[Rfam]
Nucleotides: 121
Stems, first nucleotide, its partner, number of pairs: 003115001011107006019057002022054002025051005033044004062087005069080004088098002
Number, partner (000 for none) and nucleotide at each position: 001000a002000c003115u004000a005000a006000c007000a008000g009000u010000a011107a012106u013105c014104u015103c016102c017000g018000a019057g020056c021000g022054u023053g024000c025051u026050g027049a028048c029047c030000u031000a032000a033044a034043u035042c036041u037000a038000c039000a040000a041036g042035g043034a044033u045000a046000u047029g048028g049027u050026c051025a052000a053023c054022a055000a056020g057019c058000c059000a060000u061000u062087g063086g064085g065084u066083u067000g068000a069080g070079c071078a072077g073000g074000a075000a076000a077072c078071u079070g080069c081000c082000a083066g084065g085064c086063c087062u088098c089097c090000c091000g092000u093000a094000u095000u096000u097089g098088g099000a100000a101000a102016g103015g104014a105013g106012a107011u108000u109000u110000c111000a112000a113000u114000a115003a116000u117000g118000u119000a120000u121000a
A member of the RNA family "Molybdenum/Tungsten riboswitch aptamer (Moco RNA motif)" from Syntrophaceticus schinkii, 121 nucleotides long. A reference for the family is Weinberg et al. (2007), "Identification of 22 candidate structured RNAs in bacteria using the CMfinder comparative genomics pipeline", Nucleic Acids Res. NCBI's taxonomy places the organism under Bacteria, Bacillati, Clostridia, Thermoanaerobacterales, Syntrophaceticus.